[Rfam]
RNA sequence: UGGAAGUGCCUUUCCGAACUUGGACGGUUGUUGCGUAAGGAACACCAAUCAUCCCAGCUCAGAAGGCACUUUCCUUAUACCGACACCCGCCUAUCCAGGCAAUCCAUCGGUGGAUCGAG
Numbered sequence: 001u002g003g004a005a006g007u008g009c010c011u012u013u014c015c016g017a018a019c020u021u022g023g024a025c026g027g028u029u030g031u032u033g034c035g036u037a038a039g040g041a042a043c044a045c046c047a048a049u050c051a052u053c054c055c056a057g058c059u060c061a062g063a064a065g066g067c068a069c070u071u072u073c074c075u076u077a078u079a080c081c082g083a084c085a086c087c088c089g090c091c092u093a094u095c096c097a098g099g100c101a102a103u104c105c106a107u108c109g110g111u112g113g114a115u116c117g118a119g
Base pairs, nucleotide, nucleotide: 002073003072004071005070006069007068008067009066010065011064012063013062016060017059019057020056022054023053026050027049028048030046032044033043100117102115103114104113105112106111
The record is a 119-nucleotide RNA, which matches "Actinobacteria sRNA Ms_IGR-7" in Rfam. Pairs were carried over by alignment from the consensus structure.